The record is a 136-nucleotide RNA sequence from Streptantibioticus cattleyicolor, which matches "Streptomyces RNA 5676" in Rfam. The organism belongs to Streptantibioticus cattleyicolor, within Bacteria. For this family Rfam cites "Deep sequencing-based identification of small non-coding RNAs in Streptomyces coelicolor" (Vockenhuber et al., RNA Biol, 2011).
RNA sequence: AGAUGAAGGAAACACCCCGCCGCUCGCGGGAGACCGCGGGCGACACCCCGUCGACGGAUCCCCAUCGUCGACACGGCAGUGCCCUCGCGCACAACACCGUCGGAGCCACUGGCCCCGGCACCCUUCGCCGCUCGUC
Numbered sequence: 001a002g003a004u005g006a007a008g009g010a011a012a013c014a015c016c017c018c019g020c021c022g023c024u025c026g027c028g029g030g031a032g033a034c035c036g037c038g039g040g041c042g043a044c045a046c047c048c049c050g051u052c053g054a055c056g057g058a059u060c061c062c063c064a065u066c067g068u069c070g071a072c073a074c075g076g077c078a079g080u081g082c083c084c085u086c087g088c089g090c091a092c093a094a095c096a097c098c099g100u101c102g103g104a105g106c107c108a109c110u111g112g113c114c115c116c117g118g119c120a121c122c123c124u125u126c127g128c129c130g131c132u133c134g135u136c
Base pairs, nucleotide, nucleotide: 004127005126006125007124009123021042022041023040024039025038026037027036028035029034046076047075050072052070053069054068055067056066057065079092080091081090082089099119100118101117102116103115105113106112129134
Description
It is annotated as a small RNA.